RNA sequence: UGACCAUCCCGAGCGGCUGAGAGAUCUGGCUCAGUGAAGCCGCAGCAACCCGGUGUUCUUGACGGGUGCUACCGCCAGGAACGAUGGGAG
Number, nucleotide and partner (000 for none) at each position: 001u090002g000003a000004c087005c086006a085007u084008c083009c000010c000011g000012a000013g043014c042015g041016g040017c039018u000019g000020a000021g032022a031023g030024a000025u000026c078027u077028g076029g075030c023031u022032c021033a000034g000035u000036g000037a000038a000039g017040c016041c015042g014043c013044a070045g069046c068047a067048a000049c066050c065051c064052g063053g000054u062055g000056u000057u000058c000059u000060u000061g000062a054063c052064g051065g050066g049067u047068g046069c045070u044071a000072c000073c000074g082075c029076c028077a027078g026079g000080a000081a000082c074083g008084a007085u006086g005087g004088g000089a000090g001
SAM riboswitch aptamer (S box leader): a 90-nucleotide RNA sequence from Nesterenkonia natronophila. NCBI's taxonomy places the organism under Bacteria, Bacillati, Micrococcales, Micrococcaceae, Nesterenkonia. The match comes from Rfam's covariance-model search (55 bits).